[Rfam]
Nucleotides: 184
Stems, first nucleotide, its partner, number of pairs: 018055006031045001033043002056176004066110004070102005076096008117172005125163002129159002131139001142155004
Number, partner (000 for none) and nucleotide at each position: 001000u002000c003000u004000a005000a006000c007000u008000u009000u010000c011000u012000a013000u014000c015000c016000g017000a018055g019054g020053a021052c022051a023050g024000g025000a026000a027000u028000g029000a030000u031045g032000a033043a034042g035000c036000c037000a038000a039000g040000u041000u042034u043033u044000c045031u046000g047000a048000a049000a050023c051022u052021g053020u054019c055018c056176c057175g058174u059173u060000g061000a062000g063000a064000c065000u066110c067109c068108u069107a070102c071101a072100u073099g074098c075000g076096u077095u078094u079093u080092g081091u082090u083089c084000g085000g086000c087000a088000g089083g090082a091081a092080c093079a094078a095077a096076a097000g098074g099073u100072a101071u102070g103000a104000a105000g106000c107069u108068a109067g110066g111000u112000g113000a114000a115000g116000u117172c118171g119170g120169c121168a122000g123000a124000a125163g126162g127000a128000a129159g130158g131139c132000u133000g134000a135000a136000g137000c138000c139131g140000c141000c142155u143154a144153c145152c146000a147000a148000g149000g150000a151000a152145g153144g154143u155142a156000u157000g158130c159129c160000a161000a162126c163125u164000g165000a166000u167000a168121u169120g170119c171118c172117g173059g174058a175057u176056g177000g178000c179000u180000g181000a182000a183000a184000a